The record is a 279-nucleotide RNA from Nannospalax galili, which matches "Mason-Pfizer monkey virus packaging signal" in Rfam. The family's consensus secondary structure was predicted with PFOLD. It scores 128 bits against the family's covariance model.
RNA sequence: UGGCACCCAAGGUGGGGCCUGGAAACUGGGGGACAACAUGAGGGUCCGACGACGAAGGAAGAACGGGUGCGCACCCAAUCAAACAAUAGUUCAGAGACGUCGUGGUAGCCUGCUGUGACCGAGCCGACAGGUAAGUUGGUCAUUCAAUCAUGGGGCAAGAAUUGAGUCAGUAUCAGAAAUACGUAAUACAGUUAAAAGAAGCUUUACAGGCAAGAGGAGUAAAGGUUACAACUGAGGAUUUAUUUCAUUUCUUUGAUUUUGUGAAAGACAUCUAUCUGC
Numbered sequence: 001u002g003g004c005a006c007c008c009a010a011g012g013u014g015g016g017g018c019c020u021g022g023a024a025a026c027u028g029g030g031g032g033a034c035a036a037c038a039u040g041a042g043g044g045u046c047c048g049a050c051g052a053c054g055a056a057g058g059a060a061g062a063a064c065g066g067g068u069g070c071g072c073a074c075c076c077a078a079u080c081a082a083a084c085a086a087u088a089g090u091u092c093a094g095a096g097a098c099g100u101c102g103u104g105g106u107a108g109c110c111u112g113c114u115g116u117g118a119c120c121g122a123g124c125c126g127a128c129a130g131g132u133a134a135g136u137u138g139g140u141c142a143u144u145c146a147a148u149c150a151u152g153g154g155g156c157a158a159g160a161a162u163u164g165a166g167u168c169a170g171u172a173u174c175a176g177a178a179a180u181a182c183g184u185a186a187u188a189c190a191g192u193u194a195a196a197a198g199a200a201g202c203u204u205u206a207c208a209g210g211c212a213a214g215a216g217g218a219g220u221a222a223a224g225g226u227u228a229c230a231a232c233u234g235a236g237g238a239u240u241u242a243u244u245u246c247a248u249u250u251c252u253u254u255g256a257u258u259u260u261g262u263g264a265a266a267g268a269c270a271u272c273u274a275u276c277u278g279c
Stems, first nucleotide, its partner, number of pairs: 006031003012026002037051001039049001088132001090130001091127002098121002101117005137158001139156002143154004163206003166202002214254006223241005266277003